RNA sequence: UCCUGCACUGGACCGCGGGUGCGGGCUGCCUGCGCCCUGGGCUGGAUGGUGCGGGGAGAGCAGCUGCUGAGGGCAUUCCCCCUGUUUGGAGGGCCCACCCCUGUCUCGUCCACACCCUGAGCGUCCUCGCCUG
Numbered sequence: 001u002c003c004u005g006c007a008c009u010g011g012a013c014c015g016c017g018g019g020u021g022c023g024g025g026c027u028g029c030c031u032g033c034g035c036c037c038u039g040g041g042c043u044g045g046a047u048g049g050u051g052c053g054g055g056g057a058g059a060g061c062a063g064c065u066g067c068u069g070a071g072g073g074c075a076u077u078c079c080c081c082c083u084g085u086u087u088g089g090a091g092g093g094c095c096c097a098c099c100c101c102u103g104u105c106u107c108g109u110c111c112a113c114a115c116c117c118u119g120a121g122c123g124u125c126c127u128c129g130c131c132u133g
Stems, first nucleotide, its partner, number of pairs: 001056009014044002017042001020039002023037004066130001068129007084115002087112002089109001091107003
Small nucleolar RNA SNORA71: a 133-nucleotide RNA from Myotis lucifugus. From the family's description: The members of this family belong to the H/ACA class of snoRNAs which bind a number of proteins (including dyskerin, Gar1p and Nop10p) to form snoRNP complexes. This class of snoRNAs are thought to guide the sites of modification of uridines to pseudouridines by forming direct base pairing interactions with substrate RNAs. This family includes U71 (SNORA71), ACA39 (SNORA39) and ACA60 (SNORA60). U71 and ACA60 are predicted to guide the pseudouridylation of U406 and U1004 in 18S rRNA respectively. The family's RNA type in Rfam is H/ACA-box small nucleolar RNA. On this family, see Ganot et al., Genes Dev 1997: "The family of box ACA small nucleolar RNAs is defined by an evolutionarily conserved secondary structure and ubiquitous sequence elements essential for RNA accumulation". The base pairs follow the family's consensus structure, which was predicted with PFOLD.